This 63-nucleotide sequence from Stegastes partitus belongs to the Rfam family "mir-7552 microRNA precursor family".
RNA sequence: UUACAAUUAAAGGAUAUUUCUCGUGGCAGUACUAAAAACGGAAAUAUCUCUUAAUUGUCUGGU
Dot-bracket structure: ..((((((((.((((((((((..(..........)....)))))))))).)))))))).....